The family of this 89-nucleotide RNA from Sphingomonas carotinifaciens is "Glycine riboswitch aptamer". The organism belongs to Sphingomonas, within Bacteria. The base pairs follow the family's consensus structure.
[Rfam]
RNA sequence: GGGGUCGAUGUGGGAGAGAUCGGGGCGAUCCCGGCGCCGAAGGAGCAACCGCCCCGGAAACUCUCAGGCAGAAGGACCACGCGGCGCAU
Numbered sequence: 001g002g003g004g005u006c007g008a009u010g011u012g013g014g015a016g017a018g019a020u021c022g023g024g025g026c027g028a029u030c031c032c033g034g035c036g037c038c039g040a041a042g043g044a045g046c047a048a049c050c051g052c053c054c055c056g057g058a059a060a061c062u063c064u065c066a067g068g069c070a071g072a073a074g075g076a077c078c079a080c081g082c083g084g085c086g087c088a089u
Base pairs, nucleotide, nucleotide: 006084009081010080011079012078013077020034021033022032023031036069037068038067039065040064043063044062045061049057050056